[Rfam]
RNA sequence: GUGGUGGCCGUCUCGGAUUCGCUUGGUGCAGGUCGGGAAUGAGUCAGGUCCAUGUCGACGUCAAAAUCGAGUGGAUUGACGUCGUAUCCCGCCUUGCACCAAUUGAACCGGAGCCGGUAUUGCCC
Numbered sequence: 001g002u003g004g005u006g007g008c009c010g011u012c013u014c015g016g017a018u019u020c021g022c023u024u025g026g027u028g029c030a031g032g033u034c035g036g037g038a039a040u041g042a043g044u045c046a047g048g049u050c051c052a053u054g055u056c057g058a059c060g061u062c063a064a065a066a067u068c069g070a071g072u073g074g075a076u077u078g079a080c081g082u083c084g085u086a087u088c089c090c091g092c093c094u095u096g097c098a099c100c101a102a103u104u105g106a107a108c109c110g111g112a113g114c115c116g117g118u119a120u121u122g123c124c125c
Stems, first nucleotide, its partner, number of pairs: 013112002018107003023102010034091005
Shown here is a 125-nucleotide sequence from Carex littledalei, a member of the family "MIR168 microRNA precursor family".
The family's consensus secondary structure was predicted with WAR.
Gene Ontology terms of the family: RISC complex and miRNA-mediated post-transcriptional gene silencing.